[Rfam]
RNA sequence: GAUCUGAUAGUAUGGUAGAAAGAAAGAUUCGUAUCUUUCUUUCUACCAUACUAUCUAUUAGUGUUAUUGUAGUGUAUAAAGUUGUCUAG
Numbered sequence: 001g002a003u004c005u006g007a008u009a010g011u012a013u014g015g016u017a018g019a020a021a022g023a024a025a026g027a028u029u030c031g032u033a034u035c036u037u038u039c040u041u042u043c044u045a046c047c048a049u050a051c052u053a054u055c056u057a058u059u060a061g062u063g064u065u066a067u068u069g070u071a072g073u074g075u076a077u078a079a080a081g082u083u084g085u086c087u088a089g
Stems, first nucleotide, its partner, number of pairs: 006055023
Source information:
This 89-nucleotide RNA sequence from Nyssa sinensis belongs to the Rfam family "Plastid-psbM 3UTR RNA". About the family: Plastid psbM is a non-coding RNA (ncRNA) recognised in plastids. It was found in the three prime untranslated region (3UTR) of psbM gene, its 3UTR location suggests a role in transcript maturation. The source organism's lineage runs through Eukaryota, Embryophyta, Euphyllophyta, Magnoliopsida and Nyssa.